Small nucleolar RNA SNORD42: a 67-nucleotide RNA from Microcebus murinus.
NCBI's taxonomy places the organism under Eukaryota, Amniota, Euarchontoglires, Cheirogaleidae, Microcebus.
Its family is annotated with RNA processing and nucleolus in the Gene Ontology.
Pairs were carried over by alignment from the consensus structure, which was predicted with PFOLD.
Rfam 15.1 lists 848 matches to the family in 572 species.
[Rfam]
RNA sequence: UUUUGUAUGAUGGAAAAAUCUUAAUCUCCUGAGACUUGUGAUGUCUUCAAAGGAACCACUGGGGGAA
Numbered sequence: 001u002u003u004u005g006u007a008u009g010a011u012g013g014a015a016a017a018a019u020c021u022u023a024a025u026c027u028c029c030u031g032a033g034a035c036u037u038g039u040g041a042u043g044u045c046u047u048c049a050a051a052g053g054a055a056c057c058a059c060u061g062g063g064g065g066a067a
Stems, first nucleotide, its partner, number of pairs: 001067004